[Rfam]
RNA sequence: GGAUGAAAUGAUGGCAAUCAUCUUUUGGGCCUGAUCUGAAGUGAAUACUCUUGCUGUUCACUU
Numbered sequence: 001g002g003a004u005g006a007a008a009u010g011a012u013g014g015c016a017a018u019c020a021u022c023u024u025u026u027g028g029g030c031c032u033g034a035u036c037u038g039a040a041g042u043g044a045a046u047a048c049u050c051u052u053g054c055u056g057u058u059c060a061c062u063u
Stems, first nucleotide, its partner, number of pairs: 001063002004060003
Shown here is a 63-nucleotide RNA sequence from Nannospalax galili, a member of the family "Small nucleolar RNA SNORD2". Rfam links the family to the GO terms nucleolus and RNA processing. The family's RNA type in Rfam is C/D-box small nucleolar RNA.